RNA sequence: UCCGUCCUUAUCUCGGGGAGACGCAGGGUCAAUGAUCGCCCAGUGAGCCCCUGCUGUGCUGCACCCAAGAUACCAUCACUGCACCCCGACUCCCACGGGGCCGAGGUGCAAUUUUUGUAGUC
Numbered sequence: 001u002c003c004g005u006c007c008u009u010a011u012c013u014c015g016g017g018g019a020g021a022c023g024c025a026g027g028g029u030c031a032a033u034g035a036u037c038g039c040c041c042a043g044u045g046a047g048c049c050c051c052u053g054c055u056g057u058g059c060u061g062c063a064c065c066c067a068a069g070a071u072a073c074c075a076u077c078a079c080u081g082c083a084c085c086c087c088g089a090c091u092c093c094c095a096c097g098g099g100g101c102c103g104a105g106g107u108g109c110a111a112u113u114u115u116u117g118u119a120g121u122c
Base pairs, nucleotide, nucleotide: 005019006018007017008016009015020059021057022056023055024053025052026051027050028049030047037043081109082108083107084106085105087103088102090100091099092098
About this RNA
The family of this 122-nucleotide RNA sequence from Portunus trituberculatus is "U4atac minor spliceosomal RNA". From the family's description: U4atac is an essential component of the minor U12-type spliceosome complex which is required for removal of the rarer class of eukaryotic introns (AT-AC, U12-type). Lineage of the source: Eukaryota > Mandibulata > Pancrustacea > Eumalacostraca > Portunus. Pairs were carried over by alignment from the consensus structure, which is taken from published work. A reference for the family is Davila Lopez et al. (2008), "Computational screen for spliceosomal RNA genes aids in defining the phylogenetic distribution of major and minor spliceosomal components", Nucleic Acids Res.